[Rfam]
RNA: Eukaryotic large subunit ribosomal RNA, nucleotides 1 to 432
Organism: Bilobella aurantiaca
RNA sequence: CGACCUCAGAGUAGGCGAGACUACCCGCUUAAUUUAAGCAUAUUAAUAAGCGGAGGAAAAGAAACUAACAAGGAUUCCCUUAGUAACGGCGAGCGAAAAGGGAAGAGCCCAGCGCUGAAUCUUACGUCCCACGGGCGUAAUGACAUGUAGCGUUUGGGACGAGACAUUGCUCGUACUAAAUUGAUCAUCUAAGUCCUUCUUGAACGGGGCCAUAGCCCAUGGAGGGUGCUAGGCCCGUAUGAUGAUUAUUGUUGUAUGAUGCGUUUCGUCCGUAGAGUCGGGUUGCUUGGGAGUGCAGCCCAAAUCAGGUGGUAAACUCCAUCUAAGGCUAAAUAUGACCACGAGACCGAUAGCGAACAAGUACCGUGAGGGAAAGUUGAAAAGAACUUUGAAGAGAGAGUUCAAUAGUACGUGAAACCUCUCGGGGGUAAG
Numbered sequence: 001c002g003a004c005c006u007c008a009g010a011g012u013a014g015g016c017g018a019g020a021c022u023a024c025c026c027g028c029u030u031a032a033u034u035u036a037a038g039c040a041u042a043u044u045a046a047u048a049a050g051c052g053g054a055g056g057a058a059a060a061g062a063a064a065c066u067a068a069c070a071a072g073g074a075u076u077c078c079c080u081u082a083g084u085a086a087c088g089g090c091g092a093g094c095g096a097a098a099a100g101g102g103a104a105g106a107g108c109c110c111a112g113c114g115c116u117g118a119a120u121c122u123u124a125c126g127u128c129c130c131a132c133g134g135g136c137g138u139a140a141u142g143a144c145a146u147g148u149a150g151c152g153u154u155u156g157g158g159a160c161g162a163g164a165c166a167u168u169g170c171u172c173g174u175a176c177u178a179a180a181u182u183g184a185u186c187a188u189c190u191a192a193g194u195c196c197u198u199c200u201u202g203a204a205c206g207g208g209g210c211c212a213u214a215g216c217c218c219a220u221g222g223a224g225g226g227u228g229c230u231a232g233g234c235c236c237g238u239a240u241g242a243u244g245a246u247u248a249u250u251g252u253u254g255u256a257u258g259a260u261g262c263g264u265u266u267c268g269u270c271c272g273u274a275g276a277g278u279c280g281g282g283u284u285g286c287u288u289g290g291g292a293g294u295g296c297a298g299c300c301c302a303a304a305u306c307a308g309g310u311g312g313u314a315a316a317c318u319c320c321a322u323c324u325a326a327g328g329c330u331a332a333a334u335a336u337g338a339c340c341a342c343g344a345g346a347c348c349g350a351u352a353g354c355g356a357a358c359a360a361g362u363a364c365c366g367u368g369a370g371g372g373a374a375a376g377u378u379g380a381a382a383a384g385a386a387c388u389u390u391g392a393a394g395a396g397a398g399a400g401u402u403c404a405a406u407a408g409u410a411c412g413u414g415a416a417a418c419c420u421c422u423c424g425g426g427g428g429u430a431a432g
Stems, first nucleotide, its partner, number of pairs: 024055001025053005035042002065072002076103005087093001106330004113152005119146001120143002122140006157271009174256003178252001180250001183247007193210001195209002198207002218222001225235002280301007307324005364371002387398004